[Rfam]
RNA sequence: GACUGUGUCGCUUUGGCAGUGCACUACUAGCUGGCUGUUGAGAUAUAUUCAUUUUUACAGUGGUUAGUUGCACUCCACACUGAUGCAGUC
Numbered sequence: 001g002a003c004u005g006u007g008u009c010g011c012u013u014u015g016g017c018a019g020u021g022c023a024c025u026a027c028u029a030g031c032u033g034g035c036u037g038u039u040g041a042g043a044u045a046u047a048u049u050c051a052u053u054u055u056u057a058c059a060g061u062g063g064u065u066a067g068u069u070g071c072a073c074u075c076c077a078c079a080c081u082g083a084u085g086c087a088g089u090c
Stems, first nucleotide, its partner, number of pairs: 001090010012079001014077003018074006026068008040056003
Notes:
Shown here is a 90-nucleotide RNA from Anolis carolinensis, a member of the family "mir-449 microRNA precursor family". Rfam's curators put it in the seed alignment. The organism belongs to Anolis, within Eukaryota.